This 168-nucleotide RNA sequence from Streptomyces coelicolor belongs to the Rfam family "c-di-AMP riboswitch aptamer (ydaO/yuaA leader)". Pairs were carried over by alignment from the consensus structure. Lineage of the source: Bacteria > Bacillati > Actinomycetes > Streptomycetaceae > Streptomyces.
RNA sequence: AGUCCGGCCUGCCCGCACGGCACCGGAGCCGGGGACCCAACCGAGAACUUUGGGGUGAAUCGGCCUCACCGCCCUCGACGCGAGGACGGUCCGCCGUAGGGCAAACCUUCCGCGCCACACCGCCCGAACCCGACAGCUAACCCGGUAGGCGGAGCACUGGAAGGAGUC
Dot-bracket structure: ............((...((....))..((((((....((...........))(((.....((((............................))))..((((...................))))...))).........)))))).))...................